[Rfam]
RNA sequence: GGUAGUGAACCAAAGAUUGGAAUAGGCGAACCGGACGUGGCUUCGACGCCACCACCUCCACCAACAGCGGCCGUUAUUUAUGGUUUUUGGCUGUUGCUGAUGGGGGUGAAUUGGGAUCGACGGGCGUAAUAAAGGGUCUAAGGCUACUCGGUGAGACACGCCGUUAAUGUUCAACAAGCAAUAGUUGCAAAUGACAACGAAGCUUUGGCUGUUGCUGCCUAA
Numbered sequence: 001g002g003u004a005g006u007g008a009a010c011c012a013a014a015g016a017u018u019g020g021a022a023u024a025g026g027c028g029a030a031c032c033g034g035a036c037g038u039g040g041c042u043u044c045g046a047c048g049c050c051a052c053c054a055c056c057u058c059c060a061c062c063a064a065c066a067g068c069g070g071c072c073g074u075u076a077u078u079u080a081u082g083g084u085u086u087u088u089g090g091c092u093g094u095u096g097c098u099g100a101u102g103g104g105g106g107u108g109a110a111u112u113g114g115g116a117u118c119g120a121c122g123g124g125c126g127u128a129a130u131a132a133a134g135g136g137u138c139u140a141a142g143g144c145u146a147c148u149c150g151g152u153g154a155g156a157c158a159c160g161c162c163g164u165u166a167a168u169g170u171u172c173a174a175c176a177a178g179c180a181a182u183a184g185u186u187g188c189a190a191a192u193g194a195c196a197a198c199g200a201a202g203c204u205u206u207g208g209c210u211g212u213u214g215c216u217g218c219c220u221a222a
Stems, first nucleotide, its partner, number of pairs: 001148005015138004027126002031123003037052005053108007149163004

Shown here is a 222-nucleotide sequence from an SAR116 cluster bacterium, a member of the family "permuted transfer-messenger RNA". Taxonomically the source falls in Puniceispirillales (SeqCode) (Bacteria, Pseudomonadati, Pseudomonadota, Alphaproteobacteria). About the family: Bacterial tmRNA, also known as 10Sa RNA or SsrA, is named for its dual tRNA and mRNA-like properties. Its role is to liberate the mRNA from a stalled ribosome. It is one of the family's seed sequences. By type it is a non-coding RNA gene. The base pairs follow the family's consensus structure, which is taken from published work.